[Rfam]
RNA sequence: UGUUUCCUUGCUGGAGAGAGGCUUGGCCCAGCGGCCGGCCCACCGAAGGAGCAAGCCCCAUCGCGGGUGAAUCUCUCAGGUAAAGCGGACAGCAAGGGCGCC
Numbered sequence: 001u002g003u004u005u006c007c008u009u010g011c012u013g014g015a016g017a018g019a020g021g022c023u024u025g026g027c028c029c030a031g032c033g034g035c036c037g038g039c040c041c042a043c044c045g046a047a048g049g050a051g052c053a054a055g056c057c058c059c060a061u062c063g064c065g066g067g068u069g070a071a072u073c074u075c076u077c078a079g080g081u082a083a084a085g086c087g088g089a090c091a092g093c094a095a096g097g098g099c100g101c102c
Base pairs, nucleotide, nucleotide: 006097007096008095009094010093011092012091013090020040021039022038023037042081043080044079045077046076049075050074051073055068056067057066058065
Shown here is a 102-nucleotide sequence from Ramlibacter algicola, a member of the family "Glycine riboswitch aptamer".
NCBI's taxonomy places the organism under Bacteria, Pseudomonadati, Betaproteobacteria, Burkholderiales, Ramlibacter.
It scores 64 bits against the family's covariance model.